[Rfam]
RNA sequence: GCGUCUCCACUGAUUCGACACAACGUCCUGCAGAGAUGUUGUGCGACCCGCAGUGUCAAUCGGUGGAGAUGC
Numbered sequence: 001g002c003g004u005c006u007c008c009a010c011u012g013a014u015u016c017g018a019c020a021c022a023a024c025g026u027c028c029u030g031c032a033g034a035g036a037u038g039u040u041g042u043g044c045g046a047c048c049c050g051c052a053g054u055g056u057c058a059a060u061c062g063g064u065g066g067a068g069a070u071g072c
Stems, first nucleotide, its partner, number of pairs: 001072007011062005022040006045057003
The family of this 72-nucleotide RNA sequence from Trichoderma reesei is "bZIP non canonical Hac1/Xbp1 intron". Rfam describes the family as follows. bZIP intron RNA is a non-canonical intron that was first reported in HAC1 gene in yeast and XBP1 gene in Metazoa. The family's RNA type in Rfam is small RNA. The base pairs follow the family's consensus structure, which was predicted with RNAfold. It is one of the family's seed sequences.